[Rfam]
Nucleotides: 145
Base pairs, nucleotide, nucleotide: 015136016135017134018133019132020131022128043108044107046106047105055103056102057101058100062073063072080096081095082094083093084092085091
Number, partner (000 for none) and nucleotide at each position: 001000c002000c003000c004000g005000a006000g007000c008000g009000a010000u011000c012000a013000u014000a015136a016135g017134g018133g019132a020131g021000c022128u023000g024000a025000c026000u027000g028000c029000a030000a031000a032000u033000c034000u035000g036000c037000c038000g039000u040000c041000a042000c043108c044107g045000a046106c047105u048000u049000a050000g051000a052000a053000g054000g055103u056102u057101c058100g059000a060000c061000u062073c063072g064000a065000g066000c067000a068000c069000c070000a071000g072063c073062g074000a075000g076000a077000g078000a079000a080096c081095g082094u083093u084092g085091c086000c087000a088000a089000c090000g091085g092084c093083a094082a095081c096080g097000g098000c099000c100058c101057g102056a103055a104000g105047g106046g107044u108043g109000a110000g111000g112000a113000g114000c115000g116000u117000a118000g119000c120000u121000c122000c123000g124000a125000a126000u127000a128022a129000u130000c131020c132019u133018u134017c135016c136015u137000c138000u139000g140000c141000a142000a143000c144000a145000c

About this RNA
This 145-nucleotide sequence from Kosakonia cowanii belongs to the Rfam family "RtT RNA". A search with the family's covariance model found it, with a score of 76 bits. Rfam describes the family as follows. This family represents a bacterial cis-regulatory element known as RtT RNA. The exact function of RtT is unknown although it is thought that it may be involved in changing the cellular response in relation to amino acid starvation. Rfam links the family to the GO term cellular response to amino acid starvation. The family's RNA type in Rfam is cis-regulatory element.